Yersinia sRNA 276: a 195-nucleotide RNA from Leminorella richardii.
The base pairs follow the family's consensus structure, which was predicted with RNAfold.
NCBI's taxonomy places the organism under Bacteria, Gammaproteobacteria, Enterobacterales, Budviciaceae, Leminorella.
It scores 184 bits against the family's covariance model.
Rfam classes the family as an antisense RNA.

[Rfam]
RNA sequence: CACCGACAUCAGAGAUUCAUUCUGUGAGCCUUGACCAACGGCCAGAUAGGCGUUCAUGCCCAGCUCUUUCAUCUGCUCUUCGCCAAUCACGCGAGUCGUUGUGCUCGCGCUAUAGGCAUCCGCCAGUUGGCGCGCCUGAGAGGCCAGAUAGGCGGCGUUACAGAUAUUAGGCGGCAUAUUGCCCAGAUCUUUCGC
Numbered sequence: 001c002a003c004c005g006a007c008a009u010c011a012g013a014g015a016u017u018c019a020u021u022c023u024g025u026g027a028g029c030c031u032u033g034a035c036c037a038a039c040g041g042c043c044a045g046a047u048a049g050g051c052g053u054u055c056a057u058g059c060c061c062a063g064c065u066c067u068u069u070c071a072u073c074u075g076c077u078c079u080u081c082g083c084c085a086a087u088c089a090c091g092c093g094a095g096u097c098g099u100u101g102u103g104c105u106c107g108c109g110c111u112a113u114a115g116g117c118a119u120c121c122g123c124c125a126g127u128u129g130g131c132g133c134g135c136c137u138g139a140g141a142g143g144c145c146a147g148a149u150a151g152g153c154g155g156c157g158u159u160a161c162a163g164a165u166a167u168u169a170g171g172c173g174g175c176a177u178a179u180u181g182c183c184c185a186g187a188u189c190u191u192u193c194g195c
Stems, first nucleotide, its partner, number of pairs: 005189002012032003016028005033043001035041001050059002062077003079134001081132007091123003095119002099112001101110003136163003140159002143156003167186002170183003